Shown here is a 42-nucleotide RNA from Amycolatopsis xylanica, a member of the family "L31-Actinobacteria ribosomal protein leader". For this family Rfam cites "Discovery of 20 novel ribosomal leader candidates in bacteria and archaea" (Eckert and Weinberg, BMC Microbiol, 2020). A search with the family's covariance model found it, with a score of 47 bits. Rfam classes the family as a cis-regulatory leader.
[Rfam]
RNA sequence: CCGGCUCCGGUUCACCCCGUGGAAAGUGGGGACCCGGCGGCC
Numbered sequence: 001c002c003g004g005c006u007c008c009g010g011u012u013c014a015c016c017c018c019g020u021g022g023a024a025a026g027u028g029g030g031g032a033c034c035c036g037g038c039g040g041c042c
Stems, first nucleotide, its partner, number of pairs: 003042003007037004015031006